[Rfam]
RNA: glmS glucosamine-6-phosphate activated ribozyme aptamer
Organism: Leptotrichia hofstadii
Nucleotides: 173
Stems, first nucleotide, its partner, number of pairs: 020058007067100005076088004101115004106110001119161005131148007
Number, partner (000 for none) and nucleotide at each position: 001000a002000a003000a004000a005000g006000u007000u008000a009000a010000a011000a012000a013000g014000c015000g016000c017000c018000a019000g020058u021057c022056c023055u024054u025053u026052a027000a028000a029000a030000a031000u032000a033000a034000u035000u036000a037000g038000g039000a040000u041000a042000a043000a044000a045000u046000u047000a048000u049000g050000g051000a052026u053025a054024a055023a056022g057021g058020a059000g060000a061000c062000g063000a064000g065000g066000g067100a068099a069098a070097g071096a072000g073000u074000u075000a076088u077087c078086g079085a080000a081000a082000u083000a084000a085079u086078c087077g088076g089000c090000g091000g092000a093000u094000g095000c096071u097070c098069u099068u100067u101115a102114g103113g104112u105000g106110g107000u108000u109000a110106c111000a112104a113103c114102c115101u116000u117000a118000a119161u120160a121159a122158u123157a124000u125000a126000c127000a128000a129000a130000a131148a132147u133146u134145c135144u136143g137142a138000g139000u140000a141000a142137u143136u144135g145134g146133a147132g148131u149000u150000a151000c152000a153000a154000a155000g156000g157123u158122a159121u160120u161119a162000u163000a164000g165000u166000a167000g168000c169000a170000u171000u172000u173000u